[Rfam]
RNA sequence: UAUCCCUAUGAAGAUUUAAUUCCAAAAAUGGAUUAAAAGUAGUGGACUGAUUUAUUUCCAUUGAAGAAUAUUCAUUUCCGAGGGAUA
Dot-bracket structure: ((((((...........................................................................))))))